[Rfam]
RNA sequence: GUGAAGUGAUGAUGAAGUUUAUCCAUUCUCUGAGUGCCGCUGCUCUGCCCUCCCUGCAGCACCUUGAUUCCUGUGCUAGGAUCUCUGUGCUGGGCAGCCUCCAGAUAUCCUCUAGCCUUCCAGUGUUUUACUGGUGGCUGCUGGCAUGUCUGGCUGGCUGUGCAGGAAUGGGGCAGAGCCAGCAGGGUAGGAGCCUUCUCCAGGGGGCUCCGCCUCAACCAAGACGAAUGAUGCUGUCUGAUCAC
Numbered sequence: 001g002u003g004a005a006g007u008g009a010u011g012a013u014g015a016a017g018u019u020u021a022u023c024c025a026u027u028c029u030c031u032g033a034g035u036g037c038c039g040c041u042g043c044u045c046u047g048c049c050c051u052c053c054c055u056g057c058a059g060c061a062c063c064u065u066g067a068u069u070c071c072u073g074u075g076c077u078a079g080g081a082u083c084u085c086u087g088u089g090c091u092g093g094g095c096a097g098c099c100u101c102c103a104g105a106u107a108u109c110c111u112c113u114a115g116c117c118u119u120c121c122a123g124u125g126u127u128u129u130a131c132u133g134g135u136g137g138c139u140g141c142u143g144g145c146a147u148g149u150c151u152g153g154c155u156g157g158c159u160g161u162g163c164a165g166g167a168a169u170g171g172g173g174c175a176g177a178g179c180c181a182g183c184a185g186g187g188u189a190g191g192a193g194c195c196u197u198c199u200c201c202a203g204g205g206g207g208c209u210c211c212g213c214c215u216c217a218a219c220c221a222a223g224a225c226g227a228a229u230g231a232u233g234c235u236g237u238c239u240g241a242u243c244a245c
Stems, first nucleotide, its partner, number of pairs: 010244004017237002024230005030223002034219002039183004043178006049171002051168001053166005058091005066085001069081004094161006107147002109144001113140005120134006185216003190211003194207004
RNA: Small nucleolar RNA SNORD17
Organism: Pelusios castaneus